[Rfam]
RNA sequence: GUUUUGUGAUGAUCACAUGCGUGUCAACUGAUCCCAACGGUUGUCUGGUCGCUGGCACCUUGCUGAUGUUUUAUCAGUGAGUGAUGCUGGUUGCUGGAGGAUUCUGGGAGUAUGAUCAUGCUUUUCACUUCUGAAAAC
Number, nucleotide and partner (000 for none) at each position: 001g138002u137003u136004u135005u000006g000007u000008g000009a000010u000011g000012a000013u000014c000015a000016c000017a000018u000019g000020c000021g000022u000023g000024u000025c000026a000027a000028c000029u000030g000031a000032u000033c000034c000035c000036a000037a000038c000039g000040g000041u000042u100043g000044u098045c097046u096047g095048g094049u093050c000051g000052c000053u000054g000055g000056c000057a000058c000059c000060u000061u000062g000063c000064u000065g000066a000067u000068g000069u000070u000071u000072u000073a000074u000075c000076a000077g000078u000079g000080a000081g000082u000083g000084a000085u000086g000087c000088u000089g000090g000091u000092u000093g049094c048095u047096g046097g045098a044099g000100g042101a000102u000103u000104c000105u000106g000107g000108g000109a000110g000111u000112a000113u000114g000115a000116u000117c000118a000119u000120g000121c000122u000123u000124u000125u000126c000127a000128c000129u000130u000131c000132u000133g000134a000135a004136a003137a002138c001
The record is a 138-nucleotide RNA from Scyliorhinus torazame, which matches "Small nucleolar RNA SNORD10" in Rfam. It scores 64 bits against the family's covariance model. Its family is annotated with nucleolus and RNA processing in the Gene Ontology. NCBI's taxonomy places the organism under Eukaryota, Eumetazoa, Chordata, Elasmobranchii, Scyliorhinus.